[Rfam]
The family of this 100-nucleotide RNA from Gracilibacillus dipsosauri is "TPP riboswitch aptamer (THI element)".
The base pairs follow the family's consensus structure, which is taken from published work.
NCBI's taxonomy places the organism under Bacteria, Bacillati, Bacilli, Caryophanales, Gracilibacillus.
About the family: Vitamin B(1) in its active form thiamin pyrophosphate (TPP) is an essential coenzyme that is synthesised by coupling of pyrimidine and thiazole moieties in bacteria.
A search with the family's covariance model found it, with a score of 80 bits.

RNA sequence: AACGAACACUAGGGGAGCCUUUAAGGCUGAGACGGAUUAUUUCGGACCCUUUGAACCUGAUCUGGUUAACACUAGCGUAGGGAAGUGGUAGAAUAGCUUU
Numbered sequence: 001a002a003c004g005a006a007c008a009c010u011a012g013g014g015g016a017g018c019c020u021u022u023a024a025g026g027c028u029g030a031g032a033c034g035g036a037u038u039a040u041u042u043c044g045g046a047c048c049c050u051u052u053g054a055a056c057c058u059g060a061u062c063u064g065g066u067u068a069a070c071a072c073u074a075g076c077g078u079a080g081g082g083a084a085g086u087g088g089u090a091g092a093a094u095a096g097c098u099u100u
Base pairs, nucleotide, nucleotide: 007087008086009085010084011050012049013048014047017027018026019025020024034043035042036041056081057080058079059078062075063074064073065072